[Rfam]
RNA sequence: AUAUCAUAAUGUGUUUGUUUCUCGUUGCCUUCCACAUUGCACUGUUGUGCAACAAACGGCCUGAGGUAGAGGGGUUUUAGUCGGUAGGUCCGAGGACUUCUUCCUCGGGAAUCCGACACUACCCAGGCGUACGGACGGCUGGGUGUCUUCUGAAGAUUUCCCCUCUUCC
Numbered sequence: 001a002u003a004u005c006a007u008a009a010u011g012u013g014u015u016u017g018u019u020u021c022u023c024g025u026u027g028c029c030u031u032c033c034a035c036a037u038u039g040c041a042c043u044g045u046u047g048u049g050c051a052a053c054a055a056a057c058g059g060c061c062u063g064a065g066g067u068a069g070a071g072g073g074g075u076u077u078u079a080g081u082c083g084g085u086a087g088g089u090c091c092g093a094g095g096a097c098u099u100c101u102u103c104c105u106c107g108g109g110a111a112u113c114c115g116a117c118a119c120u121a122c123c124c125a126g127g128c129g130u131a132c133g134g135a136c137g138g139c140u141g142g143g144u145g146u147c148u149u150c151u152g153a154a155g156a157u158u159u160c161c162c163c164u165c166u167u168c169c
Base pairs, nucleotide, nucleotide: 033049034048035047058169059168068166069165070164072162073161074160080117081116082115083114084113089109090108091107092106093105094104095103096102119145121144122143123142124141125140
RNA: R2 RNA element